A member of the RNA family "Necrovirus cap-independent translation element" from Betanecrovirus nicotianae, 84 nucleotides long. The match comes from Rfam's covariance-model search (90 bits). The literature on the family includes a 2013 paper in J Virol by Nicholson et al., "Tombusvirus Y-shaped translational enhancer forms a complex with eIF4F and can be functionally replaced by heterologous translational enhancers". The source organism's lineage runs through Viruses, Kitrinoviricota, Tolucaviricetes, Procedovirinae and Betanecrovirus nicotianae. By type it is a cis-regulatory element.
[Rfam]
RNA sequence: UUGACGAAUAGGCCGGAUCCUGGGAAACAGGUUUAACGGGCUCUCUGUGGUGGAGGGCCGACGCAUCACCUAUUUGUGCUCCAA
Numbered sequence: 001u002u003g004a005c006g007a008a009u010a011g012g013c014c015g016g017a018u019c020c021u022g023g024g025a026a027a028c029a030g031g032u033u034u035a036a037c038g039g040g041c042u043c044u045c046u047g048u049g050g051u052g053g054a055g056g057g058c059c060g061a062c063g064c065a066u067c068a069c070c071u072a073u074u075u076g077u078g079c080u081c082c083a084a
Stems, first nucleotide, its partner, number of pairs: 001084003004077009014063002019031004039059006